[Rfam]
RNA sequence: GCUGGUUUAGCUCAGUCGGUAGAGCGCAUCCAUGGUAAGGAUGAGGUCGCCGGUUCGAUCCCGGCAACUAGCA
Number, nucleotide and partner (000 for none) at each position: 001g072002c071003u070004g069005g068006u067007u066008u000009a000010g025011c024012u023013c022014a000015g000016u000017c000018g000019g000020u000021a000022g013023a012024g011025c010026g000027c043028a042029u041030c040031c039032a000033u000034g000035g000036u000037a000038a000039g031040g030041a029042u028043g027044a000045g000046g000047u000048c000049g065050c064051c063052g062053g061054u000055u000056c000057g000058a000059u000060c000061c053062c052063g051064g050065c049066a007067a006068c005069u004070a003071g002072c001073a000
RNA: tRNA
Organism: Streptococcus varani